The record is a 336-nucleotide sequence from Jaapia argillacea, which matches "Group I catalytic intron" in Rfam. Rfam describes the family as follows. Group I catalytic introns are large self-splicing ribozymes. Its family is annotated with Group I intron splicing in the Gene Ontology. For this family Rfam cites "Crystal structure of a group I ribozyme domain: principles of RNA packing" (Cate et al., Science, 1996).
RNA sequence: CCAGAAAAGUUAAUGGAUAGCUUUUAAGAGCAGACUAAAAGUGUUCUGCUAGUGGGCCCACCCCGCUAACGGUGAGGGGUGGUCACCUGCGAGACUGUCAAAUUGCGGGAAGUUCCUUAGAGCCUCUGCUACCGCCUCUACAUGGAAACAUAGUAGUGUGCACCAGGGUAAUGACCUCGGGUAUGGUAAAAACGCAGGGGAUUGGAUAAUCCGCAGCCAAGUCCUAAGGGUUCUAUCGGACCUAUGGAUGCAGUUCAACGACUAAAUGGCAGUCGGUUCCAGAGGCUCAAAUGCUCUGGGGCUUAAGAUAGAGUCUGGCCGCCCAGAAAUGGGUCC
Numbered sequence: 001c002c003a004g005a006a007a008a009g010u011u012a013a014u015g016g017a018u019a020g021c022u023u024u025u026a027a028g029a030g031c032a033g034a035c036u037a038a039a040a041g042u043g044u045u046c047u048g049c050u051a052g053u054g055g056g057c058c059c060a061c062c063c064c065g066c067u068a069a070c071g072g073u074g075a076g077g078g079g080u081g082g083u084c085a086c087c088u089g090c091g092a093g094a095c096u097g098u099c100a101a102a103u104u105g106c107g108g109g110a111a112g113u114u115c116c117u118u119a120g121a122g123c124c125u126c127u128g129c130u131a132c133c134g135c136c137u138c139u140a141c142a143u144g145g146a147a148a149c150a151u152a153g154u155a156g157u158g159u160g161c162a163c164c165a166g167g168g169u170a171a172u173g174a175c176c177u178c179g180g181g182u183a184u185g186g187u188a189a190a191a192a193c194g195c196a197g198g199g200g201a202u203u204g205g206a207u208a209a210u211c212c213g214c215a216g217c218c219a220a221g222u223c224c225u226a227a228g229g230g231u232u233c234u235a236u237c238g239g240a241c242c243u244a245u246g247g248a249u250g251c252a253g254u255u256c257a258a259c260g261a262c263u264a265a266a267u268g269g270c271a272g273u274c275g276g277u278u279c280c281a282g283a284g285g286c287u288c289a290a291a292u293g294c295u296c297u298g299g300g301g302c303u304u305a306a307g308a309u310a311g312a313g314u315c316u317g318g319c320c321g322c323c324c325a326g327a328a329a330u331g332g333g334u335c336c
Base pairs, nucleotide, nucleotide: 005025006024007023008022009021010020011019012018093274094273095272096271097270099268100267104215105214106213107212108211109210114206115205116204216254217253221249222248223247224246229242230241231240232239233238258316260315261314262313263312276302277301278300279299280298281297282296283295284294321334322333323332324331325330